[Rfam]
RNA sequence: CCACUUAUGCAGUAUCAUAACCAAUGAAGUUAAUCUGAGGUGUGAUUAUUGCUAGUUGUAAACUCUUCAAGGCAUAUUUCUCCUUAUGUGUUUCUACAGCGGGCAGCACACUGGAGCUUUGAUUUGUUUGGGGCAUCUGGGUGC
Numbered sequence: 001c002c003a004c005u006u007a008u009g010c011a012g013u014a015u016c017a018u019a020a021c022c023a024a025u026g027a028a029g030u031u032a033a034u035c036u037g038a039g040g041u042g043u044g045a046u047u048a049u050u051g052c053u054a055g056u057u058g059u060a061a062a063c064u065c066u067u068c069a070a071g072g073c074a075u076a077u078u079u080c081u082c083c084u085u086a087u088g089u090g091u092u093u094c095u096a097c098a099g100c101g102g103g104c105a106g107c108a109c110a111c112u113g114g115a116g117c118u119u120u121g122a123u124u125u126g127u128u129u130g131g132g133g134c135a136u137c138u139g140g141g142u143g144c
Stems, first nucleotide, its partner, number of pairs: 014046005020041003028036002083116003088111004133144004